[Rfam]
A member of the RNA family "Bacillus-plasmid RNA" from Melanocharis versteri, 54 nucleotides long. Pairs were carried over by alignment from the consensus structure, which is taken from published work. Taxonomically the source falls in Melanocharis (Eukaryota, Metazoa, Bilateria, Deuterostomia).
RNA sequence: GAUGUGAACUGUAACCGGAGAGGAGGGAGCACAAGGAGUUCACAUCUACCUGCA
Numbered sequence: 001g002a003u004g005u006g007a008a009c010u011g012u013a014a015c016c017g018g019a020g021a022g023g024a025g026g027g028a029g030c031a032c033a034a035g036g037a038g039u040u041c042a043c044a045u046c047u048a049c050c051u052g053c054a
Stems, first nucleotide, its partner, number of pairs: 001046009